[Rfam]
RNA sequence: UUUUAGCCCUGAUUGAAGCAAGUAUCCUUUUUGUCUUUUGACGAUUUGCAUCUCUCCCGAAACUUCGGGAUGCCACGAUGUGACAAAAAGAUACUGCGAAAAGCGGGAAAAUGG
Numbered sequence: 001u002u003u004u005a006g007c008c009c010u011g012a013u014u015g016a017a018g019c020a021a022g023u024a025u026c027c028u029u030u031u032u033g034u035c036u037u038u039u040g041a042c043g044a045u046u047u048g049c050a051u052c053u054c055u056c057c058c059g060a061a062a063c064u065u066c067g068g069g070a071u072g073c074c075a076c077g078a079u080g081u082g083a084c085a086a087a088a089a090g091a092u093a094c095u096g097c098g099a100a101a102a103g104c105g106g107g108a109a110a111a112u113g114g
Base pairs, nucleotide, nucleotide: 009106010105011104013102014101018097019096024092025091026090030087031086032085033084034083035082037080
Shown here is a 114-nucleotide sequence from Flavobacterium dankookense, a member of the family "Flavo-1 RNA". A search with the family's covariance model found it, with a score of 50 bits. By type it is a small RNA.